[Rfam]
RNA sequence: GGGUUUCACUCCUGGAUUUACCAUUAACCAUCCUUUCGGACGGCAUGUUUUGGUGUCUGAUCCAGCCUGCACUGAAUCGGGAGCACCAUCUGCGUAGGCUCAAGAGCCGAAGCUCCGGGUUUGAGGCUUGCGCCGCCUACGGUCUUGGACGACCCCCGCAUGGCAGGGACCCCAAUAGGUGGCGCACCCAGCGGGUGCGCCG
Numbered sequence: 001g002g003g004u005u006u007c008a009c010u011c012c013u014g015g016a017u018u019u020a021c022c023a024u025u026a027a028c029c030a031u032c033c034u035u036u037c038g039g040a041c042g043g044c045a046u047g048u049u050u051u052g053g054u055g056u057c058u059g060a061u062c063c064a065g066c067c068u069g070c071a072c073u074g075a076a077u078c079g080g081g082a083g084c085a086c087c088a089u090c091u092g093c094g095u096a097g098g099c100u101c102a103a104g105a106g107c108c109g110a111a112g113c114u115c116c117g118g119g120u121u122u123g124a125g126g127c128u129u130g131c132g133c134c135g136c137c138u139a140c141g142g143u144c145u146u147g148g149a150c151g152a153c154c155c156c157c158g159c160a161u162g163g164c165a166g167g168g169a170c171c172c173c174a175a176u177a178g179g180u181g182g183c184g185c186a187c188c189c190a191g192c193g194g195g196u197g198c199g200c201c202g
Base pairs, nucleotide, nucleotide: 002172003171005169006168007167011163012162013160022047023046028043029042031040032039033038051088052087053086054085055084056083057080058079059078060077061076063074064073065072092159093158094157097154098153100151119150120149121148122147123146124145125144126143127142128141181201182200183199184198185197186196187195188194
RNA: Pseudomonas sRNA P27